RNA sequence: GAUGGUUCUUGAGUGAUGAACCCCAGAAUCAGGCUCCCUACUUUCUGGUUCCAGGGUGUGUCACACAAGCUGCU
Numbered sequence: 001g002a003u004g005g006u007u008c009u010u011g012a013g014u015g016a017u018g019a020a021c022c023c024c025a026g027a028a029u030c031a032g033g034c035u036c037c038c039u040a041c042u043u044u045c046u047g048g049u050u051c052c053a054g055g056g057u058g059u060g061u062c063a064c065a066c067a068a069g070c071u072g073c074u
Stems, first nucleotide, its partner, number of pairs: 003072001005070001008069004013064005020057004026051008
Source information: Rfam assigns this 74-nucleotide RNA sequence from Myotis davidii to the family "mir-9223 microRNA precursor family". The base pairs follow the family's consensus structure, which was predicted with RNAalifold. The family has 9 seed sequences and 14,641 matches in Rfam 15.1. Its family is annotated with miRNA-mediated post-transcriptional gene silencing and RISC complex in the Gene Ontology.